Shown here is a 110-nucleotide RNA from Callithrix jacchus, a member of the family "Y RNA". It scores 67 bits against the family's covariance model. The family's RNA type in Rfam is non-coding RNA gene. The family's consensus secondary structure is taken from published work. NCBI's taxonomy places the organism under Eukaryota, Teleostomi, Boreoeutheria, Euarchontoglires, Callithrix. The family has 104 seed sequences and 26,986 matches in Rfam 15.1. About the family: Y RNAs are components of the Ro ribonucleoprotein particle (Ro RNP), in association with Ro60 and La proteins.
[Rfam]
Nucleotides: 110
Base pairs, nucleotide, nucleotide: 001106002105003104004103005102006101007100008099010098011097014094015093016089017088018087019086020085021084043073044072047069048068
Number, partner (000 for none) and nucleotide at each position: 001106g002105g003104c004103u005102g006101g007100u008099c009000c010098g011097a012000a013000g014094g015093u016089a017088g018087u019086g020085a021084g022000u023000c024000a025000u026000c027000u028000c029000a030000a031000u032000u033000g034000c035000u036000u037000g038000u039000u040000c041000a042000c043073g044072g045000u046000c047069a048068g049000u050000u051000a052000g053000a054000u055000u056000g057000a058000a059000c060000u061000a062000c063000u064000u065000g066000u067000u068048c069047u070000a071000c072044u073043c074000u075000u076000u077000u078000c079000c080000c081000c082000c083000u084021u085020u086019c087018a088017c089016u090000a091000u092000u093015g094014c095000a096000c097011u098010u099008g100007a101006c102005u103004a104003g105002u106001c107000u108000u109000a110000a